[Rfam]
RNA sequence: GUAGGAUUUCGGUGUGUCGAUGGCUUUGUUUGAGUCUUUGGUUAAGAUAAGAAGUUGUCGCCUAAUGUUUUUCUCCCAACCUGUUCUUUUCGUUGUAUUUUGCGAACUGAACUUUUUAAGGAACGGCUAUCUGGUG
Numbered sequence: 001g002u003a004g005g006a007u008u009u010c011g012g013u014g015u016g017u018c019g020a021u022g023g024c025u026u027u028g029u030u031u032g033a034g035u036c037u038u039u040g041g042u043u044a045a046g047a048u049a050a051g052a053a054g055u056u057g058u059c060g061c062c063u064a065a066u067g068u069u070u071u072u073c074u075c076c077c078a079a080c081c082u083g084u085u086c087u088u089u090u091c092g093u094u095g096u097a098u099u100u101u102g103c104g105a106a107c108u109g110a111a112c113u114u115u116u117u118a119a120g121g122a123a124c125g126g127c128u129a130u131c132u133g134g135u136g
Base pairs, nucleotide, nucleotide: 003074004073005072006071018060019059020058021057022056024054025053026052027051034048035047036046037045088111089110090109092107093106094105